[Rfam]
RNA sequence: GAAUGUGAGGGCGAUCUGGCUGCAAUAUCUGUCAUCCCAUUGAUCGCAAGGGUUGAUUUGGCUGAUCUGGCUGGCUAGGUGGGUGUCCCCUUCCUCCCUCACCGCUCCAUGUGUGCCCCUCCUGAAGAUGCACUCUUGGUUGAAGAGAACAACCUUCCCCAAUAGAGACAUACCAUUCAUCGGUCAAGGGUAUACGAUAGCUGCGCUCCCCUGCUAGAACCUCCAAAACAAGUUCAAGGUCCGUUUUUAGGAGAACAUAGGGUAGUCAAGCUUCCAAGACUGCAGACACAUCCGAGUGAGGCACUGCAUGGGCAGUCUGCCAUUGCUU
Numbered sequence: 001g002a003a004u005g006u007g008a009g010g011g012c013g014a015u016c017u018g019g020c021u022g023c024a025a026u027a028u029c030u031g032u033c034a035u036c037c038c039a040u041u042g043a044u045c046g047c048a049a050g051g052g053u054u055g056a057u058u059u060g061g062c063u064g065a066u067c068u069g070g071c072u073g074g075c076u077a078g079g080u081g082g083g084u085g086u087c088c089c090c091u092u093c094c095u096c097c098c099u100c101a102c103c104g105c106u107c108c109a110u111g112u113g114u115g116c117c118c119c120u121c122c123u124g125a126a127g128a129u130g131c132a133c134u135c136u137u138g139g140u141u142g143a144a145g146a147g148a149a150c151a152a153c154c155u156u157c158c159c160c161a162a163u164a165g166a167g168a169c170a171u172a173c174c175a176u177u178c179a180u181c182g183g184u185c186a187a188g189g190g191u192a193u194a195c196g197a198u199a200g201c202u203g204c205g206c207u208c209c210c211c212u213g214c215u216a217g218a219a220c221c222u223c224c225a226a227a228a229c230a231a232g233u234u235c236a237a238g239g240u241c242c243g244u245u246u247u248u249a250g251g252a253g254a255a256c257a258u259a260g261g262g263u264a265g266u267c268a269a270g271c272u273u274c275c276a277a278g279a280c281u282g283c284a285g286a287c288a289c290a291u292c293c294g295a296g297u298g299a300g301g302c303a304c305u306g307c308a309u310g311g312g313c314a315g316u317c318u319g320c321c322a323u324u325g326c327u328u
Stems, first nucleotide, its partner, number of pairs: 001108001003106001005102007013093002018090002025086009035074002037070003042067004046062002119167003122139004127135002140162003147158001149156001200271003206265002209262005221253004227248002230245002294328003298323001300321003303316005
7SK RNA: a 328-nucleotide sequence from Upupa epops.
7SK was discovered as an abundant small nuclear RNA in the mid-70s but a possible function has only recently been suggested. Two independent studies have found that 7SK RNA binds the CDK9/cyclin T complex (known as elongation factor P-TEFb). P-TEFb activates transcription by phosphorylating the C-terminal domain of RNA polymerase II. This process is negatively regulated by the 7SK RNP. The secondary structure of 7SK RNA shown here was proposed by Wasserman and Steitz on the basis of chemical modification and enzymatic cleavage experiments. This family contains a number of annotated pseudogenes and 7SK derived repeats. The threshold is artificially high to minimise the pseudogene count.
Clan: 7SK clan.
It scores 295 bits against the family's covariance model.
Rfam classes the family as a non-coding RNA gene.